The family of this 108-nucleotide RNA from Rhododendron simsii is "Small nucleolar RNA snoR100". Pairs were carried over by alignment from the consensus structure, which was predicted with WAR. Its family is annotated with nucleolus and RNA processing in the Gene Ontology. The source organism's lineage runs through Eukaryota, Viridiplantae, Tracheophyta, Ericoideae and Rhododendron.
RNA sequence: CAAUGAAGGAAGCAUGGUAAUGUGCACAAAAAUUAAAUUGGGUCUCUAGCCCUGCCUUCUCUCAUGCUAUUUGGCCUUGAUUAGUGGGCAUGGUUCCGCAGCAAAAUA
Numbered sequence: 001c002a003a004u005g006a007a008g009g010a011a012g013c014a015u016g017g018u019a020a021u022g023u024g025c026a027c028a029a030a031a032a033u034u035a036a037a038u039u040g041g042g043u044c045u046c047u048a049g050c051c052c053u054g055c056c057u058u059c060u061c062u063c064a065u066g067c068u069a070u071u072u073g074g075c076c077u078u079g080a081u082u083a084g085u086g087g088g089c090a091u092g093g094u095u096c097c098g099c100a101g102c103a104a105a106a107u108a
Stems, first nucleotide, its partner, number of pairs: 012025004040091001042089003052079001054075003